[Rfam]
RNA: THF (Tetrahydrofolate) riboswitch aptamer
RNA sequence: UUAAGAGUAGCUAUUCUGCGUUAAGUGUUAUACCAUGGGAUGUCGGGUAUAAACGAACACAAAACGUGGCGGUAGAAUAGCGCGUCCGCUAAU
Numbered sequence: 001u002u003a004a005g006a007g008u009a010g011c012u013a014u015u016c017u018g019c020g021u022u023a024a025g026u027g028u029u030a031u032a033c034c035a036u037g038g039g040a041u042g043u044c045g046g047g048u049a050u051a052a053a054c055g056a057a058c059a060c061a062a063a064a065c066g067u068g069g070c071g072g073u074a075g076a077a078u079a080g081c082g083c084g085u086c087c088g089c090u091a092a093u
Base pairs, nucleotide, nucleotide: 002092004090005089010081011080012079013078014077015076016075017074018073019071020070021069025054026053028052029051030050031049032048033047034046038087039086040085041084042083058068059067060066